Source information:
This 108-nucleotide sequence from Plutella xylostella belongs to the Rfam family "mir-8517 microRNA precursor family". Gene Ontology terms of the family: miRNA-mediated post-transcriptional gene silencing and RISC complex. It scores 98 bits against the family's covariance model.

[Rfam]
RNA sequence: UUAGAGGACGCUUUAGCUAUUGAACUGAGGUGUCACUCUCUGACAGAGAACAAUUUGUUUUUUGACAGAGAGGGACAAAAGAGUUCAAUAGCUAAAGCGUCCACUAAC
Numbered sequence: 001u002u003a004g005a006g007g008a009c010g011c012u013u014u015a016g017c018u019a020u021u022g023a024a025c026u027g028a029g030g031u032g033u034c035a036c037u038c039u040c041u042g043a044c045a046g047a048g049a050a051c052a053a054u055u056u057g058u059u060u061u062u063u064g065a066c067a068g069a070g071a072g073g074g075a076c077a078a079a080a081g082a083g084u085u086c087a088a089u090a091g092c093u094a095a096a097g098c099g100u101c102c103a104c105u106a107a108c
Stems, first nucleotide, its partner, number of pairs: 001107004006102001011097016031067005049059004